RNA sequence: UUGUAGUUUUCUGACUUAGUGAAAGUCUAAACCGGAAGUUAAAGUCUUCGUACUUUUUUAAGCAUGAAUAGGUGAAAUUCCUAUACCGACAGUAAAGUCUGAAUGAAGAAAAUACAA
Numbered sequence: 001u002u003g004u005a006g007u008u009u010u011c012u013g014a015c016u017u018a019g020u021g022a023a024a025g026u027c028u029a030a031a032c033c034g035g036a037a038g039u040u041a042a043a044g045u046c047u048u049c050g051u052a053c054u055u056u057u058u059u060a061a062g063c064a065u066g067a068a069u070a071g072g073u074g075a076a077a078u079u080c081c082u083a084u085a086c087c088g089a090c091a092g093u094a095a096a097g098u099c100u101g102a103a104u105g106a107a108g109a110a111a112a113u114a115c116a117a
Base pairs, nucleotide, nucleotide: 003115004114005113007111008110009109010108017029018028019027031098032097033088034087035049036048037047038046044086045085054062068084069083070082071081072080090101091100092099
A member of the RNA family "FMN riboswitch aptamer (RFN element)" from Mycoplasma crocodyli, 117 nucleotides long. NCBI's taxonomy places the organism under Bacteria, Bacillati, Mycoplasmatota, Mycoplasmataceae, Mycoplasma crocodyli. A search with the family's covariance model found it, with a score of 73 bits.